[Rfam]
Source information: The family of this 99-nucleotide sequence from Gossypium anomalum is "mir-393 microRNA precursor family". The base pairs follow the family's consensus structure. Lineage of the source: Eukaryota > Streptophyta > Streptophytina > Magnoliopsida > Gossypium. Its family is annotated with RISC complex and miRNA-mediated post-transcriptional gene silencing in the Gene Ontology.

RNA sequence: AGAGGAGGGAUCCAAAGGGAUCGCAUUGAUCCUUUAUUUUUCUUUUUAAAAAUUUUUUACGCUAAUUUUGGAUCAUGCUAUCCCUUUGGAUUCCUCCUU
Numbered sequence: 001a002g003a004g005g006a007g008g009g010a011u012c013c014a015a016a017g018g019g020a021u022c023g024c025a026u027u028g029a030u031c032c033u034u035u036a037u038u039u040u041u042c043u044u045u046u047u048a049a050a051a052a053u054u055u056u057u058u059a060c061g062c063u064a065a066u067u068u069u070g071g072a073u074c075a076u077g078c079u080a081u082c083c084c085u086u087u088g089g090a091u092u093c094c095u096c097c098u099u
Stems, first nucleotide, its partner, number of pairs: 002099005008093014023078004028074005036067001